The family of this 47-nucleotide sequence from Agaricicola taiwanensis is "Guanidine-II riboswitch aptamer (mini-ykkC)". The source organism's lineage runs through Bacteria, Pseudomonadati, Pseudomonadota, Alphaproteobacteria and Agaricicola. Rfam links the family to the GO term regulation of gene expression.
RNA sequence: CGUGUGGGACGACCCGCGCCAUCGGAUAUCAUCCCGGGACGACCCGG
Numbered sequence: 001c002g003u004g005u006g007g008g009a010c011g012a013c014c015c016g017c018g019c020c021a022u023c024g025g026a027u028a029u030c031a032u033c034c035c036g037g038g039a040c041g042a043c044c045c046g047g
Stems, first nucleotide, its partner, number of pairs: 002019007034047005
The match comes from Rfam's covariance-model search (36 bits).